[Rfam]
RNA sequence: AUGGUGGGAUGCGGCAACGCACGAGGCUCGUGACGGGGAAAUGAUCGCUCCCGACGCACCCCUCCAUUGGAGACAACUUCGUGAGAUC
Number, nucleotide and partner (000 for none) at each position: 001a067002u066003g065004g064005u000006g062007g061008g060009a000010u058011g057012c056013g055014g000015c000016a000017a000018c000019g000020c032021a031022c030023g000024a000025g000026g000027c000028u000029c000030g022031u021032g020033a000034c053035g052036g051037g050038g049039a000040a000041a000042u000043g000044a000045u000046c000047g000048c000049u038050c037051c036052c035053g034054a000055c013056g012057c011058a010059c000060c008061c007062c006063u000064c004065c003066a002067u001068u000069g000070g000071a000072g000073a000074c000075a000076a000077c000078u000079u000080c000081g000082u000083g000084a000085g000086a000087u000088c000
A member of the RNA family "Tick-borne Flavivirus exoribonuclease-resistant RNA element" from Rhodospirillum rubrum, 88 nucleotides long.
By type it is a cis-regulatory element.
On this family, see Moon et al., RNA 2012: "A noncoding RNA produced by arthropod-borne flaviviruses inhibits the cellular exoribonuclease XRN1 and alters host mRNA stability".
The family's consensus secondary structure was predicted with LocARNA.
It is one of the family's seed sequences.